[Rfam]
RNA: MIR1120/MIR1122 microRNA precursor family
Organism: Triticum aestivum
RNA sequence: GUACUCCCUCCGUCCCAUAAUAUAAGAUCGUUUUUCAAGCUAUGUUAGCUUGAGAAAUGAUCUUAUAUUGUGGGACGGAGGGAGUAG
Numbered sequence: 001g002u003a004c005u006c007c008c009u010c011c012g013u014c015c016c017a018u019a020a021u022a023u024a025a026g027a028u029c030g031u032u033u034u035u036c037a038a039g040c041u042a043u044g045u046u047a048g049c050u051u052g053a054g055a056a057a058u059g060a061u062c063u064u065a066u067a068u069u070g071u072g073g074g075a076c077g078g079a080g081g082g083a084g085u086a087g
Base pairs, nucleotide, nucleotide: 003085004084005083007081008080009079010078011077013075014074015073016072017071019069020068021067022066023065024064025063026062027061028060029059030058031057032056033055034054035053036052037051038050039049040048041047